[Rfam]
RNA: RNase E 5' UTR element
RNA sequence: UUUCUUAGCUGAAGAUUCAGAUAAGAAAAAAAACGAAAUUAGUUAUUUUGUCGGAUUGAGCAGACACGCAGCAAUGGCGUAAGACGUAAUGCGAAAUCAGACACUUAGCGGGCUGCGGGUUGCGGCCUGGACAUGAGAUGGAGUGCACGGGUUUACUGAAUUAUCUCUCGCAUUUCCACUAUCUGGUGCUGUUGUUCCUUAUGAAAAACAGGCCACCGACGUUAUUUGCGCCCCUCGCGCGGUCGAUAACCGUGAGGUUGACGACAUUGCACUAAGUCACGGGGCCAUCGGUUGAUACUCGUCCAGGGUAACUAUGCCCGCAGCUUUAAUCACUCA
Numbered sequence: 001u002u003u004c005u006u007a008g009c010u011g012a013a014g015a016u017u018c019a020g021a022u023a024a025g026a027a028a029a030a031a032a033a034c035g036a037a038a039u040u041a042g043u044u045a046u047u048u049u050g051u052c053g054g055a056u057u058g059a060g061c062a063g064a065c066a067c068g069c070a071g072c073a074a075u076g077g078c079g080u081a082a083g084a085c086g087u088a089a090u091g092c093g094a095a096a097u098c099a100g101a102c103a104c105u106u107a108g109c110g111g112g113c114u115g116c117g118g119g120u121u122g123c124g125g126c127c128u129g130g131a132c133a134u135g136a137g138a139u140g141g142a143g144u145g146c147a148c149g150g151g152u153u154u155a156c157u158g159a160a161u162u163a164u165c166u167c168u169c170g171c172a173u174u175u176c177c178a179c180u181a182u183c184u185g186g187u188g189c190u191g192u193u194g195u196u197c198c199u200u201a202u203g204a205a206a207a208a209c210a211g212g213c214c215a216c217c218g219a220c221g222u223u224a225u226u227u228g229c230g231c232c233c234c235u236c237g238c239g240c241g242g243u244c245g246a247u248a249a250c251c252g253u254g255a256g257g258u259u260g261a262c263g264a265c266a267u268u269g270c271a272c273u274a275a276g277u278c279a280c281g282g283g284g285c286c287a288u289c290g291g292u293u294g295a296u297a298c299u300c301g302u303c304c305a306g307g308g309u310a311a312c313u314a315u316g317c318c319c320g321c322a323g324c325u326u327u328a329a330u331c332a333c334u335c336a
Base pairs, nucleotide, nucleotide: 001038002037003036004035006033016027017026018025049103050102051101052100054098055097060092061091062090066087067086068085071078072077110326111325112324113323114322115321116320117319118318119317120316128305129304130303131302132301140177141176142175143173148170149169150168151167185214186213187212189211190210191209192208195205196204197203215292216291217290218289219288230285231284232283233282234281244263245262247260248259249258250257251256